Shown here is a 77-nucleotide sequence from Steinernema hermaphroditum, a member of the family "mir-87 microRNA precursor family".
RNA sequence: UGCUCGCCGCCUGGAACUUCGUCUCAACCUUAGAGUUGGCUAGGCGUAGGUGAGCAAAGUUUCAGGUGUGCGAGCAU
Numbered sequence: 001u002g003c004u005c006g007c008c009g010c011c012u013g014g015a016a017c018u019u020c021g022u023c024u025c026a027a028c029c030u031u032a033g034a035g036u037u038g039g040c041u042a043g044g045c046g047u048a049g050g051u052g053a054g055c056a057a058a059g060u061u062u063c064a065g066g067u068g069u070g071c072g073a074g075c076a077u
Stems, first nucleotide, its partner, number of pairs: 002075006008068007016060004023054004028050003
Description:
Taxonomically the source falls in Steinernema (Eukaryota, Protostomia, Nematoda, Panagrolaimomorpha). The family's consensus secondary structure was predicted with RNAalifold. Rfam links the family to the GO terms RISC complex and miRNA-mediated post-transcriptional gene silencing. The match comes from Rfam's covariance-model search (67 bits). Rfam 15.1 lists 420 matches to the family in 285 species. The literature on the family includes a 2003 paper in Dev Cell by Aravin et al., "The small RNA profile during Drosophila melanogaster development".